[Rfam]
RNA sequence: GUUCCGGGCCGUGACUGGCGCUGAGGUGGAGCACCACCGGGGAGCGGUCCGACGAAUGGGUCGAUGCCGUGCGCCUGGGCGAUUGUU
Numbered sequence: 001g002u003u004c005c006g007g008g009c010c011g012u013g014a015c016u017g018g019c020g021c022u023g024a025g026g027u028g029g030a031g032c033a034c035c036a037c038c039g040g041g042g043a044g045c046g047g048u049c050c051g052a053c054g055a056a057u058g059g060g061u062c063g064a065u066g067c068c069g070u071g072c073g074c075c076u077g078g079g080c081g082a083u084u085g086u087u
Stems, first nucleotide, its partner, number of pairs: 005051008015041002017075005026037004065081004
A member of the RNA family "ZMP/ZTP riboswitch aptamer (pfl RNA motif)" from Streptomyces sporangiiformans, 87 nucleotides long.
It scores 60 bits against the family's covariance model.
For this family Rfam cites "Global RNA Fold and Molecular Recognition for a pfl Riboswitch Bound to ZMP, a Master Regulator of One-Carbon Metabolism" (Ren et al., Structure, 2015).
Gene Ontology terms of the family: one-carbon metabolic process and regulation of purine nucleotide biosynthetic process.
The family's consensus secondary structure is taken from published work.
Taxonomically the source falls in Streptomyces (Bacteria, Actinomycetota, Kitasatosporales, Streptomycetaceae).